[Rfam]
RNA: Plastid-ycf2 5UTR RNA
RNA sequence: GUGCAUCGAACAGGAAUUGAACCCGUAAAUUUCCCAAUUAUGAGUUGGGAGCUUUAACCAUUCAGCCAUAGAUGC
Dot-bracket structure: ..(((((..((.((.......)).)).............(((.((((((.(.......).))))))))).)))))